[Rfam]
RNA sequence: AUUGCCAUAAAGCCCAUAGCAGAAGCGCUCAUGUUGCAGCCCUGUCAGAUUCUCAAGAAUCUGCAAAUUCUGCU
Numbered sequence: 001a002u003u004g005c006c007a008u009a010a011a012g013c014c015c016a017u018a019g020c021a022g023a024a025g026c027g028c029u030c031a032u033g034u035u036g037c038a039g040c041c042c043u044g045u046c047a048g049a050u051u052c053u054c055a056a057g058a059a060u061c062u063g064c065a066a067a068u069u070c071u072g073c074u
Base pairs, nucleotide, nucleotide: 012041014039018074019073020072021071022070023069024068025037026036027035046063047062048061049060050059051058052057
The record is a 74-nucleotide RNA from Crocodylus porosus, which matches "Mammalian CPEB3 ribozyme" in Rfam.
The base pairs follow the family's consensus structure, which is taken from published work.
A search with the family's covariance model found it, with a score of 54 bits.
Gene Ontology term of the family: RNA nuclease activity.
From the family's description: The mammalian CPEB3 ribozyme is a self cleaving RNA located in the second intron of the CPEB3 gene which belongs to a family of genes regulating messenger RNA polyadenylation.